Nucleotides: 109
Stems, first nucleotide, its partner, number of pairs: 033052008056097003059093011
Number, partner (000 for none) and nucleotide at each position: 001000a002000u003000g004000c005000u006000c007000c008000u009000u010000g011000u012000u013000g014000u015000g016000u017000u018000a019000a020000g021000u022000g023000u024000u025000g026000g027000c028000a029000g030000a031000u032000c033052u034051c035050u036049g037048g038047a039046c040045c041000u042000a043000g044000u045040g046039g047038u048037c049036c050035g051034g052033a053000u054000u055000u056097g057096a058095a059093c060092c061091u062090c063089g064088a065087a066086c067085u068084u069083u070000c071000c072000c073000c074000u075000c076000c077000c078000c079000c080000a081000a082000u083069g084068a085067a086066g087065u088064u089063c090062g091061a092060g093059g094000u095058u096057u097056u098000u099000u100000u101000u102000g103000c104000c105000c106000g107000c108000a109000g
A member of the RNA family "Pseudomon-1/ErsA RNA" from Pseudomonas sp. ABC1, 109 nucleotides long. Gene Ontology terms of the family: response to antibiotic, sRNA-mediated gene silencing and mRNA binding. A search with the family's covariance model found it, with a score of 112 bits. For this family Rfam cites "Post-transcriptional regulation of the virulence-associated enzyme AlgC by the sigma(22) -dependent small RNA ErsA of Pseudomonas aeruginosa" (Ferrara et al., Environ Microbiol, 2015). Functions to regulate the AlgC enzyme. Based on this information, the new name ErsA for the RNA was adopted. Negatively regulates major porin oprD expression responsible for uptake of carbapenem antibiotics, by base pairing with oprD 5'UTR (leading to increased bacterial resistance to meropenem).Positively regulates amrZ mRNA and contributes to biofilm formation and motility. By type it is a small RNA. The family's consensus secondary structure is taken from published work.